This 81-nucleotide sequence from Notechis scutatus belongs to the Rfam family "Small nucleolar RNA SNORD34". A reference for the family is Chen et al. (2003), "The high diversity of snoRNAs in plants: identification and comparative study of 120 snoRNA genes from Oryza sativa", Nucleic Acids Res. Gene Ontology terms of the family: RNA processing and nucleolus. Its Rfam clan is "SNORD34 clan". The family's consensus secondary structure was predicted with PFOLD. Rfam describes the family as follows. snoRNA U34 is found in intron 5 of the ribosomal protein L13a gene in humans.
[Rfam]
Nucleotides: 081
Base pairs, nucleotide, nucleotide: 002080004078005077006076007075
Number, partner (000 for none) and nucleotide at each position: 001000u002080u003000c004078u005077g006076u007075c008000a009000g010000u011000g012000a013000u014000g015000u016000u017000c018000u019000c020000u021000u022000u023000u024000u025000u026000a027000c028000c029000u030000a031000c032000a033000u034000u035000g036000u037000u038000u039000g040000a041000c042000u043000u044000a045000a046000g047000a048000u049000g050000u051000g052000a053000g054000a055000a056000a057000a058000a059000a060000a061000a062000a063000c064000c065000c066000u067000a068000a069000g070000a071000c072000u073000g074000a075007g076006g077005c078004a079000g080002a081000u